[Rfam]
RNA sequence: GUUUGGCAAGAGUGAUGAUUCAAUUAGAUGUGUGAAAAGGGAAAUCCUUUUUUUGAACUCAAUUGUUUGAGGCAUAACAUGUCUGACUUGCCUGGC
Numbered sequence: 001g002u003u004u005g006g007c008a009a010g011a012g013u014g015a016u017g018a019u020u021c022a023a024u025u026a027g028a029u030g031u032g033u034g035a036a037a038a039g040g041g042a043a044a045u046c047c048u049u050u051u052u053u054u055g056a057a058c059u060c061a062a063u064u065g066u067u068u069g070a071g072g073c074a075u076a077a078c079a080u081g082u083c084u085g086a087c088u089u090g091c092c093u094g095g096c
Stems, first nucleotide, its partner, number of pairs: 001096003005092006
This 96-nucleotide sequence from Rosa chinensis belongs to the Rfam family "Small nucleolar RNA Z266". The family's RNA type in Rfam is C/D-box small nucleolar RNA. Rfam links the family to the GO terms RNA processing and nucleolus. It scores 78 bits against the family's covariance model.